[Rfam]
RNA sequence: AGAUUGAAAAGCUAAACUUGUUGUGAAGCAAGGACAGAAAGUCAUGGGUCUUGAUGAAAAAGAUCGCCAGACUGCACAA
Numbered sequence: 001a002g003a004u005u006g007a008a009a010a011g012c013u014a015a016a017c018u019u020g021u022u023g024u025g026a027a028g029c030a031a032g033g034a035c036a037g038a039a040a041g042u043c044a045u046g047g048g049u050c051u052u053g054a055u056g057a058a059a060a061a062g063a064u065c066g067c068c069a070g071a072c073u074g075c076a077c078a079a
Stems, first nucleotide, its partner, number of pairs: 012037002017032006040073004045069003048064003

c-di-GMP-I riboswitch aptamer: a 79-nucleotide RNA from Sulfurovum sp. AR. NCBI's taxonomy places the organism under Bacteria, Campylobacterota, Epsilonproteobacteria, Campylobacterales, Sulfurovum. About the family: GEMM was predicted in a large-scale screen for bacterial structured RNA regulatory elements. Genes associated with GEMM are involved in a diverse array of functions, including chemotaxis regulation, signal transduction, secretion and chitin.